This 130-nucleotide sequence from Actinacidiphila paucisporea belongs to the Rfam family "Streptomyces-metH RNA". It scores 82 bits against the family's covariance model. The source organism's lineage runs through Bacteria, Bacillati, Actinomycetes, Streptomycetaceae and Actinacidiphila. By type it is a small RNA. The family's consensus secondary structure is taken from published work.

[Rfam]
RNA sequence: CCGUCCGCUCUUCGGAAUGCCUUCGAGACGCGGCCCCCUCGGCGGCUACUCUGGCCAGGUGUGCGUUCCGUCCCCCGCGGGCGGGCGGCGCAUAGCCGACAGCCGUCGCAUCCCAGGGAGCAGUUCCAUG
Number, nucleotide and partner (000 for none) at each position: 001c000002c000003g000004u000005c000006c000007g000008c000009u000010c000011u000012u000013c000014g000015g000016a000017a000018u000019g000020c000021c000022u000023u000024c000025g000026a000027g000028a000029c000030g000031c000032g000033g000034c000035c000036c000037c000038c000039u000040c000041g000042g000043c000044g000045g000046c000047u000048a000049c000050u000051c000052u000053g000054g000055c000056c000057a000058g000059g000060u092061g091062u090063g089064c000065g086066u085067u084068c083069c000070g000071u000072c000073c000074c000075c000076c000077g000078c000079g000080g000081g000082c000083g068084g067085g066086c065087g000088g000089c063090g062091c061092a060093u000094a000095g109096c108097c000098g107099a106100c105101a000102g000103c000104c000105g100106u099107c098108g096109c095110a000111u000112c000113c000114c000115a000116g000117g000118g000119a000120g000121c000122a000123g000124u000125u000126c000127c000128a000129u000130g000